[Rfam]
RNA sequence: AUGACAGAAGAGAGUGAGCACCCAUGGUCUUUUUGCAAAUAGUUUGAUAUGCUUGAAGCGAUGUGUGCUCACCCUCUAUCUGUCAU
Number, nucleotide and partner (000 for none) at each position: 001a086002u085003g084004a083005c082006a081007g080008a079009a000010g076011a075012g074013a000014g072015u071016g070017a069018g068019c067020a066021c065022c000023c063024a062025u061026g000027g000028u000029c000030u000031u000032u000033u000034u000035g000036c000037a000038a000039a000040u000041a000042g000043u000044u000045u000046g000047a000048u000049a000050u000051g000052c000053u000054u000055g000056a000057a000058g000059c000060g000061a025062u024063g023064u000065g021066u020067g019068c018069u017070c016071a015072c014073c000074c012075u011076c010077u000078a000079u008080c007081u006082g005083u004084c003085a002086u001